[Rfam]
RNA sequence: GAGAUAUGAUGAACUUUUUAUAUAUUGGUUCCGUGUUUCUGAGUAACCAUUGACGAUUUUCAAGUUCUGAUCUC
Numbered sequence: 001g002a003g004a005u006a007u008g009a010u011g012a013a014c015u016u017u018u019u020a021u022a023u024a025u026u027g028g029u030u031c032c033g034u035g036u037u038u039c040u041g042a043g044u045a046a047c048c049a050u051u052g053a054c055g056a057u058u059u060u061c062a063a064g065u066u067c068u069g070a071u072c073u074c
Stems, first nucleotide, its partner, number of pairs: 001074004
RNA: Small nucleolar RNA SNORD18